[Rfam]
RNA sequence: UAAAUUCCUCGUUAGCAUGAGGCGUUUGCACGAACAAAGGCUACUGCCCAGAAAUGUCGAAAGACGCCAAUGGGUAGACCAGGUAUUGUCGGCAUAAGGCUUUACCUAAGGUAGCUGGUUAUCGAACCUACGUUGUGCACUGCCGAAAACCUACGAGUGGGGAAUCCG
Numbered sequence: 001u002a003a004a005u006u007c008c009u010c011g012u013u014a015g016c017a018u019g020a021g022g023c024g025u026u027u028g029c030a031c032g033a034a035c036a037a038a039g040g041c042u043a044c045u046g047c048c049c050a051g052a053a054a055u056g057u058c059g060a061a062a063g064a065c066g067c068c069a070a071u072g073g074g075u076a077g078a079c080c081a082g083g084u085a086u087u088g089u090c091g092g093c094a095u096a097a098g099g100c101u102u103u104a105c106c107u108a109a110g111g112u113a114g115c116u117g118g119u120u121a122u123c124g125a126a127c128c129u130a131c132g133u134u135g136u137g138c139a140c141u142g143c144c145g146a147a148a149a150c151c152u153a154c155g156a157g158u159g160g161g162g163a164a165u166c167c168g
Base pairs, nucleotide, nucleotide: 005164006163007162008161009160010159011154012153013097015150018148021144022143023142027139028138029137030136031135032134033133040115041114042113043112044111046075047074048073049072050071055066056065057064058063082106083105084104085103088100089099090098117128118127119126
This 168-nucleotide sequence from Geomesophilobacter sediminis belongs to the Rfam family "M-box riboswitch aptamer (ykoK leader)".
The source organism's lineage runs through Bacteria, Pseudomonadati, Thermodesulfobacteriota, Geobacterales and Geomesophilobacter.
Rfam 15.1 lists 1,095 matches to the family in 932 species.
Rfam's curators write: M-box riboswitch, also know as ykoK leader is described as a metaloregulatory RNA that sense divalent metals and function as a genetic control element of genes related to divalent metal transport in bacteria. It was first reported upstream of the B.subtilis ykoK gene and genes with related functions in other bacteria.